[Rfam]
RNA sequence: GGAUGGAACUCUGGAGAGCCCCUGUCAGCAGGGCGCCGAAGGUGCAAAUUGGUAGGAUUACCAAUGAAACUCUCAGGCAAAAGGACAGAGCAUUAGGU
Number, nucleotide and partner (000 for none) at each position: 001g000002g000003a000004u000005g000006g093007a000008a000009c090010u089011c088012u087013g086014g000015a000016g000017a000018g000019c000020c033021c032022c031023u030024g000025u000026c000027a000028g000029c000030a023031g022032g021033g020034c000035g078036c077037c076038g074039a073040a000041g000042g072043u000044g070045c000046a000047a000048a065049u064050u063051g062052g061053u000054a000055g000056g000057a000058u000059u000060a000061c052062c051063a050064a049065u048066g000067a000068a000069a000070c044071u000072c042073u039074c038075a000076g037077g036078c035079a000080a000081a000082a000083g000084g000085a000086c013087a012088g011089a010090g009091c000092a000093u006094u000095a000096g000097g000098u000
RNA: Glycine riboswitch aptamer
Organism: Sporomusaceae bacterium FL31